[Rfam]
RNA sequence: CGCGGUCCUCGGUAGUGAUUCCCGGGAAACCAUCUGUGACGAUGAUGCCCGUGGAUCUCGAUCGAUGACCGGG
Numbered sequence: 001c002g003c004g005g006u007c008c009u010c011g012g013u014a015g016u017g018a019u020u021c022c023c024g025g026g027a028a029a030c031c032a033u034c035u036g037u038g039a040c041g042a043u044g045a046u047g048c049c050c051g052u053g054g055a056u057c058u059c060g061a062u063c064g065a066u067g068a069c070c071g072g073g
Base pairs, nucleotide, nucleotide: 001073003071004070005069006068007067009065010064011063012062013061017057018056019055020054021053023051024050025049026048029046031044032043033042034041

Record summary: Shown here is a 73-nucleotide RNA sequence from Paenarthrobacter aurescens, a member of the family "Actino-pnp RNA". The sequence is in the family's curated seed alignment. By type it is a cis-regulatory element. The source organism's lineage runs through Bacteria, Bacillati, Micrococcales, Micrococcaceae and Paenarthrobacter aurescens.